[Rfam]
RNA sequence: UCAAGGGAAAGGAGGUGGUCCGAACAAUGAUCUCUCAUCGGACUAUGGAGGUGGCCGUCGCCUGACUGACUGACUGAGAUCCAUCAGCCAGUCGGCGGUCGCCGACCCCCGAAGAGGACGGACCCCGUGUUCGCGCGAACGUCGCGCGGCACGGGGUCCGUUUCGU
Numbered sequence: 001u002c003a004a005g006g007g008a009a010a011g012g013a014g015g016u017g018g019u020c021c022g023a024a025c026a027a028u029g030a031u032c033u034c035u036c037a038u039c040g041g042a043c044u045a046u047g048g049a050g051g052u053g054g055c056c057g058u059c060g061c062c063u064g065a066c067u068g069a070c071u072g073a074c075u076g077a078g079a080u081c082c083a084u085c086a087g088c089c090a091g092u093c094g095g096c097g098g099u100c101g102c103c104g105a106c107c108c109c110c111g112a113a114g115a116g117g118a119c120g121g122a123c124c125c126c127g128u129g130u131u132c133g134c135g136c137g138a139a140c141g142u143c144g145c146g147c148g149g150c151a152c153g154g155g156g157u158c159c160g161u162u163u164c165g166u
Stems, first nucleotide, its partner, number of pairs: 014059006060102002062098003066094001068093004119160013133147006